[Rfam]
RNA sequence: CGACCCCGUGCGGGAGAGUCCCCGGUCUGGCCGCCGGGGCGCCGAAGGAGCAACUCCUCCCCGGAAUCUCUCAGGCAUCCGAACCGCACGGUCGAG
Number, nucleotide and partner (000 for none) at each position: 001c000002g000003a000004c000005c000006c091007c090008g089009u088010g087011c086012g085013g084014g000015a000016g000017a000018g000019u000020c039021c038022c037023c036024g000025g000026u000027c000028u000029g000030g000031c000032c000033g000034c000035c000036g023037g022038g021039g020040c000041g076042c075043c074044g072045a071046a000047g000048g070049a069050g068051c000052a000053a000054c064055u063056c000057c000058u000059c000060c000061c000062c000063g055064g054065a000066a000067u000068c050069u049070c048071u045072c044073a000074g043075g042076c041077a000078u000079c000080c000081g000082a000083a000084c013085c012086g011087c010088a009089c008090g007091g006092u000093c000094g000095a000096g000
This 96-nucleotide RNA sequence from Wenjunlia vitaminophila belongs to the Rfam family "Glycine riboswitch aptamer". Rfam links the family to the GO term glycine biosynthetic process. Lineage of the source: Bacteria > Bacillati > Actinomycetota > Kitasatosporales > Wenjunlia. The match comes from Rfam's covariance-model search (69 bits).